This 128-nucleotide RNA sequence from Galemys pyrenaicus belongs to the Rfam family "Small Cajal body specific RNA 4". Lineage of the source: Eukaryota > Chordata > Sarcopterygii > Theria > Galemys. Rfam links the family to the GO terms nucleolus, RNA processing and Cajal body. The match comes from Rfam's covariance-model search (138 bits).
RNA sequence: ACUGGAGGACUAAGAAGGCUGAGUUUGAUGAAGCAAAACUCUGCUGAUACAAUCCUCCUAGAAAAAGGGGUUGGAUAGAGCAGCCUUUACUGGAGAAUGUAACAGGCUGACUGUCCUACCCAACAUUC
Numbered sequence: 001a002c003u004g005g006a007g008g009a010c011u012a013a014g015a016a017g018g019c020u021g022a023g024u025u026u027g028a029u030g031a032a033g034c035a036a037a038a039c040u041c042u043g044c045u046g047a048u049a050c051a052a053u054c055c056u057c058c059u060a061g062a063a064a065a066a067g068g069g070g071u072u073g074g075a076u077a078g079a080g081c082a083g084c085c086u087u088u089a090c091u092g093g094a095g096a097a098u099g100u101a102a103c104a105g106g107c108u109g110a111c112u113g114u115c116c117u118a119c120c121c122a123a124c125a126u127u128c
Base pairs, nucleotide, nucleotide: 002061003060004058005057006056007055008054009053017045018044019043021041022040023039024038025037026036068121069120070119071118079112080111081109082108083107084106085105086104091101093100